[Rfam]
RNA: Small nucleolar RNA U2-19
RNA sequence: GAUCAAGGAGGAUAUUAACCAGAUGUGAGCAUCUGACCUUCCAGUCCCUGACGCGUGAUCCCUAUGGUUCUGGGC
Numbered sequence: 001g002a003u004c005a006a007g008g009a010g011g012a013u014a015u016u017a018a019c020c021a022g023a024u025g026u027g028a029g030c031a032u033c034u035g036a037c038c039u040u041c042c043a044g045u046c047c048c049u050g051a052c053g054c055g056u057g058a059u060c061c062c063u064a065u066g067g068u069u070c071u072g073g074g075c
Stems, first nucleotide, its partner, number of pairs: 029054002032051002035046003